[Rfam]
RNA sequence: UAAUCUGUUUGGGACAUAUCCUCAUUUAGUUAUGAUAGAGCCACACUUUGCUAUUUAGAAUCACCCGUUAUCGCAAGCCCGGCAACAUCAUUGACAUUGAAAAACAGAGGACAACUAAUGUGUGAACAAUAAA
Number, nucleotide and partner (000 for none) at each position: 001u000002a000003a000004u131005c000006u129007g000008u126009u125010u000011g000012g123013g000014a121015c120016a000017u000018a119019u118020c000021c000022u000023c000024a000025u117026u000027u114028a000029g112030u111031u110032a000033u000034g000035a000036u000037a000038g000039a000040g000041c000042c000043a000044c000045a000046c000047u000048u000049u000050g000051c000052u000053a000054u000055u000056u000057a000058g000059a000060a000061u000062c000063a000064c000065c000066c000067g000068u000069u000070a000071u000072c000073g000074c000075a000076a000077g000078c000079c000080c000081g000082g000083c000084a000085a000086c000087a000088u000089c000090a000091u000092u000093g000094a000095c000096a000097u000098u000099g000100a000101a000102a000103a000104a000105c000106a000107g000108a000109g000110g031111a030112c029113a000114a027115c000116u000117a025118a019119u018120g015121u014122g000123u012124g000125a009126a008127c000128a000129a006130u000131a004132a000133a000